[Rfam]
RNA sequence: UUUAGCAUUGGCUUUGCGAGCCAUGAUGCCGUUCCCUACUGCAUGUAAUAAGUGCGUUUUACCUAAACCGGUGCCGCCAUA
Number, nucleotide and partner (000 for none) at each position: 001u000002u000003u000004a000005g042006c041007a040008u000009u038010g037011g036012c000013u000014u000015u000016g032017c031018g030019a000020g029021c028022c000023a000024u000025g000026a000027u000028g021029c020030c018031g017032u016033u000034c000035c000036c011037u010038a009039c000040u007041g006042c005043a000044u000045g000046u000047a000048a000049u000050a000051a000052g077053u076054g075055c000056g074057u073058u000059u000060u000061a072062c071063c070064u000065a000066a000067a000068c000069c000070g063071g062072u061073g057074c056075c054076g053077c052078c000079a000080u000081a000
This 81-nucleotide sequence from Lonsdalea quercina belongs to the Rfam family "antisense RNA of dnaA mRNA". For this family Rfam cites "Identification and characterization of a cis-encoded antisense RNA associated with the replication process of Salmonella enterica serovar Typhi" (Dadzie et al., PLoS One, 2013). The family's consensus secondary structure was predicted with RNAfold.